RNA: tRNA
RNA sequence: GCGCCUUUAGCUCAGUUGGUAGAGCAACUGACUCUUAAUCAGUGGGUCCCCGGUUCGAAUCCGUGAAGGCGCA
Dot-bracket structure: (((((((..((((........)))).(((((.......))))).....(.(((.......))).)))))))).